Rfam assigns this 312-nucleotide part of an RNA from Oryza brachyantha to the family "Eukaryotic large subunit ribosomal RNA".
RNA sequence: GAGUCUAGCAUGUGCGCGAGUCAUUGGGUCUACGAAACCUAAAGGCGAAAUGAAAGUGAAGGAACGCUUAAGUGUUCUUAGGGGUGAUGGUCGCGCUUUCAUGCCGACCCGCAACCCCGGGGCGUCGAUUCCUCUUGAGGAGCGACGCACCUAGAGCGUACAUGUUGGUACCCGAAAGAUGGUGACCUAUGCCUGGCCAGGGUGAAGCCAGGGGAAACCCUGGUGGAGGCCCGAAGCAAUUCUGACGUGCAAAUCGAUUGUCAGAGCUGGGUAUAGGGGCGAAAGACUAAUCGAACCAUCUAGUAGCUGGUU
Numbered sequence: 001g002a003g004u005c006u007a008g009c010a011u012g013u014g015c016g017c018g019a020g021u022c023a024u025u026g027g028g029u030c031u032a033c034g035a036a037a038c039c040u041a042a043a044g045g046c047g048a049a050a051u052g053a054a055a056g057u058g059a060a061g062g063a064a065c066g067c068u069u070a071a072g073u074g075u076u077c078u079u080a081g082g083g084g085u086g087a088u089g090g091u092c093g094c095g096c097u098u099u100c101a102u103g104c105c106g107a108c109c110c111g112c113a114a115c116c117c118c119g120g121g122g123c124g125u126c127g128a129u130u131c132c133u134c135u136u137g138a139g140g141a142g143c144g145a146c147g148c149a150c151c152u153a154g155a156g157c158g159u160a161c162a163u164g165u166u167g168g169u170a171c172c173c174g175a176a177a178g179a180u181g182g183u184g185a186c187c188u189a190u191g192c193c194u195g196g197c198c199a200g201g202g203u204g205a206a207g208c209c210a211g212g213g214g215a216a217a218c219c220c221u222g223g224u225g226g227a228g229g230c231c232c233g234a235a236g237c238a239a240u241u242c243u244g245a246c247g248u249g250c251a252a253a254u255c256g257a258u259u260g261u262c263a264g265a266g267c268u269g270g271g272u273a274u275a276g277g278g279g280c281g282a283a284a285g286a287c288u289a290a291u292c293g294a295a296c297c298a299u300c301u302a303g304u305a306g307c308u309g310g311u312u
Stems, first nucleotide, its partner, number of pairs: 005168013020046003025041005050057002081118005089109005120151002122148006132139002171310002174307001178300006187276011198264001200232004207224007236261004241257002244255002278288002

For this family Rfam cites "Crystal structure of the ribosome at 5.5 A resolution" (Yusupov et al., Science, 2001).